[Rfam]
RNA sequence: UGAGCCCUGCUUUGGUCGAAGCUUCUAGUUCCACUAGGAGUACUGAUGUAGGCCCUAGCGGGGCUUU
Numbered sequence: 001u002g003a004g005c006c007c008u009g010c011u012u013u014g015g016u017c018g019a020a021g022c023u024u025c026u027a028g029u030u031c032c033a034c035u036a037g038g039a040g041u042a043c044u045g046a047u048g049u050a051g052g053c054c055c056u057a058g059c060g061g062g063g064c065u066u067u
Stems, first nucleotide, its partner, number of pairs: 002066010014055001015053003021041009
A member of the RNA family "DUF3800-VIII RNA" from Mesorhizobium sp. LNHC209A00, 67 nucleotides long. Bacteroidetes, Cyanobacteria, Firmicutes, Planctomycetes (1 example), Proteobacteria, Tenericutes (1 example). The base pairs follow the family's consensus structure, which is taken from published work.